MIR812 microRNA precursor family: a 196-nucleotide RNA from Oryza rufipogon.
Lineage of the source: Eukaryota > Liliopsida > Petrosaviidae > Poaceae > Oryza.
RNA sequence: UUUAACCGAUUUUCCGCACCCAACUUUAACCGUUCGUCUUGUUUGAAUUUUUUUUUAAAAAAAAUUAAAAUCAUAAGUCAAGAGUAAAGUAAUUUUUAUGUUUUAUUAUCUCAGCAACAAAAAUGCUAAUUAUAAAAAAAUUUCAAAUAAAACGGUCGAUUAAAGUUGGACGCAAAAACUCGUAGUUGCGCUUAUU
Numbered sequence: 001u002u003u004a005a006c007c008g009a010u011u012u013u014c015c016g017c018a019c020c021c022a023a024c025u026u027u028a029a030c031c032g033u034u035c036g037u038c039u040u041g042u043u044u045g046a047a048u049u050u051u052u053u054u055u056u057a058a059a060a061a062a063a064a065u066u067a068a069a070a071u072c073a074u075a076a077g078u079c080a081a082g083a084g085u086a087a088a089g090u091a092a093u094u095u096u097u098a099u100g101u102u103u104u105a106u107u108a109u110c111u112c113a114g115c116a117a118c119a120a121a122a123a124u125g126c127u128a129a130u131u132a133u134a135a136a137a138a139a140a141u142u143u144c145a146a147a148u149a150a151a152a153c154g155g156u157c158g159a160u161u162a163a164a165g166u167u168g169g170a171c172g173c174a175a176a177a178a179c180u181c182g183u184a185g186u187u188g189c190g191c192u193u194a195u196u
Stems, first nucleotide, its partner, number of pairs: 020169010031158002034155004039150004
Background:
Its family is annotated with RISC complex and miRNA-mediated post-transcriptional gene silencing in the Gene Ontology.